[Rfam]
RNA sequence: AAUGAUAAAGGCAAACUUAUCGAAAGGUAAGGACGCAAAGCCACGGGUCUAAGAUUGGUUAAAUUAUGAUAGCCGGGCUGCCAAAU
Numbered sequence: 001a002a003u004g005a006u007a008a009a010g011g012c013a014a015a016c017u018u019a020u021c022g023a024a025a026g027g028u029a030a031g032g033a034c035g036c037a038a039a040g041c042c043a044c045g046g047g048u049c050u051a052a053g054a055u056u057g058g059u060u061a062a063a064u065u066a067u068g069a070u071a072g073c074c075g076g077g078c079u080g081c082c083a084a085a086u
Stems, first nucleotide, its partner, number of pairs: 001086001003083002011036002016031006034072001039079004044075003047070003

This 86-nucleotide RNA from Bacillus sp. FJAT-27231 belongs to the Rfam family "c-di-GMP-I-GGC riboswitch aptamer".
It scores 78 bits against the family's covariance model.